[Rfam]
RNA sequence: AUACUUAACCUGGCUGGGGGGAUACCAUGAUCAUGAAGGUUGUUUUCCCAGGGAGAGGCUUAGCGCACUCUGGAUGCACUGACCGCUGUGAUUUCCCCAAACGUGGGAAACUCAACUGCAUAAUUUGUAGUAGCAGGGGACUGUGUUCACACUUUCUCCUU
Numbered sequence: 001a002u003a004c005u006u007a008a009c010c011u012g013g014c015u016g017g018g019g020g021g022a023u024a025c026c027a028u029g030a031u032c033a034u035g036a037a038g039g040u041u042g043u044u045u046u047c048c049c050a051g052g053g054a055g056a057g058g059c060u061u062a063g064c065g066c067a068c069u070c071u072g073g074a075u076g077c078a079c080u081g082a083c084c085g086c087u088g089u090g091a092u093u094u095c096c097c098c099a100a101a102c103g104u105g106g107g108a109a110a111c112u113c114a115a116c117u118g119c120a121u122a123a124u125u126u127g128u129a130g131u132a133g134c135a136g137g138g139g140a141c142u143g144u145g146u147u148c149a150c151a152c153u154u155u156c157u158c159c160u161u
Stems, first nucleotide, its partner, number of pairs: 013119002016116001017049006024043002027040002050087002053084001055083001057080002061076002064072001089114003092110003096106002135160006143152003

Shown here is a 161-nucleotide RNA from Panthera tigris, a member of the family "U1 spliceosomal RNA".
A search with the family's covariance model found it, with a score of 110 bits.
The base pairs follow the family's consensus structure, which is taken from published work.
Clan: U1 clan.
Gene Ontology terms of the family: mRNA 5'-splice site recognition, U1 snRNP and pre-mRNA 5'-splice site binding.
U1 is a small nuclear RNA (snRNA) component of the spliceosome (involved in pre-mRNA splicing). Its 5' end forms complementary base pairs with the 5' splice junction, thus defining the 5' donor site of an intron. There are significant differences in sequence and secondary structure between metazoan and yeast U1 snRNAs, the latter being much longer (568 nucleotides as compared to 164 nucleotides in human). Nevertheless, secondary structure predictions suggest that all U1 snRNAs share a 'common core' consisting of helices I, II, the proximal region of III, and IV. This family does not contain the larger yeast sequences.
By type it is a spliceosomal small nuclear RNA.
The family has 100 seed sequences and 40,184 matches in Rfam 15.1.